Source information: The family of this 87-nucleotide RNA from Morella rubra is "mir-156 microRNA precursor family". This family represents the plant microRNA (miRNA) precursor mir-156. The source organism's lineage runs through Eukaryota, Streptophyta, Streptophytina, rosids and Morella. Gene Ontology terms of the family: RISC complex and miRNA-mediated post-transcriptional gene silencing. On this family, see Reinhart et al., Genes Dev 2002: "MicroRNAs in plants".
RNA sequence: GUGACAGAAGAGAGUGAGCACACAAGGUUCUUUCUUGCAUGAAGUGUCCGUGCAUGAAGCUCUGUGUGCUCACCCUCUAUCUGUCAG
Numbered sequence: 001g002u003g004a005c006a007g008a009a010g011a012g013a014g015u016g017a018g019c020a021c022a023c024a025a026g027g028u029u030c031u032u033u034c035u036u037g038c039a040u041g042a043a044g045u046g047u048c049c050g051u052g053c054a055u056g057a058a059g060c061u062c063u064g065u066g067u068g069c070u071c072a073c074c075c076u077c078u079a080u081c082u083g084u085c086a087g
Stems, first nucleotide, its partner, number of pairs: 002086007010077003014073008023064002